[Rfam]
RNA sequence: CAGAAAUGGGUGUUCCUUGCAGCCCAAAUCAUGGUCAUAAUAUAACACUUAUGCUCGUUUGUUUUGGACUGAAGGGAGCUCCUAAUUCUU
Numbered sequence: 001c002a003g004a005a006a007u008g009g010g011u012g013u014u015c016c017u018u019g020c021a022g023c024c025c026a027a028a029u030c031a032u033g034g035u036c037a038u039a040a041u042a043u044a045a046c047a048c049u050u051a052u053g054c055u056c057g058u059u060u061g062u063u064u065u066g067g068a069c070u071g072a073a074g075g076g077a078g079c080u081c082c083u084a085a086u087u088c089u090u
Stems, first nucleotide, its partner, number of pairs: 007084004012079007021070002024067005

Rfam assigns this 90-nucleotide RNA sequence from Trema andersonii to the family "MIR319 microRNA precursor family". Gene Ontology terms of the family: RISC complex and miRNA-mediated post-transcriptional gene silencing. Taxonomically the source falls in Trema (Eukaryota, Tracheophyta, Euphyllophyta, eudicotyledons). Pairs were carried over by alignment from the consensus structure, which was predicted with RNAalifold.